[Rfam]
RNA sequence: UGUCUCCACUAUUCUCCUCCAAGAAAAUAGUUUUAAGCCCGCUUUCACCAGCGGGCUUUUUUUU
Numbered sequence: 001u002g003u004c005u006c007c008a009c010u011a012u013u014c015u016c017c018u019c020c021a022a023g024a025a026a027a028u029a030g031u032u033u034u035a036a037g038c039c040c041g042c043u044u045u046c047a048c049c050a051g052c053g054g055g056c057u058u059u060u061u062u063u064u
Base pairs, nucleotide, nucleotide: 008031009030010029011028012027013024014023036057037056038055039054040053041052042051043050
Dot-bracket structure: .......(((((((........))..)))))....((((((((......)))))))).......